The record is a 71-nucleotide RNA from Mycobacterium leprae, which matches "Actino-pnp RNA" in Rfam. Taxonomically the source falls in Mycobacterium (Bacteria, Actinomycetes, Mycobacteriales, Mycobacteriaceae). The family's RNA type in Rfam is cis-regulatory element.
RNA sequence: GGCGGUCUUCGGUAGUGGCUGUCGGGCUCUCCGGAUCUGGAGCAGGUCGGCCGCUUCGAUCGAUGGCCGUA
Numbered sequence: 001g002g003c004g005g006u007c008u009u010c011g012g013u014a015g016u017g018g019c020u021g022u023c024g025g026g027c028u029c030u031c032c033g034g035a036u037c038u039g040g041a042g043c044a045g046g047u048c049g050g051c052c053g054c055u056u057c058g059a060u061c062g063a064u065g066g067c068c069g070u071a
Base pairs, nucleotide, nucleotide: 002070003069004068005067006066007065009063010062011061012060013059017055018054019053021051022050023049024048025047027045028044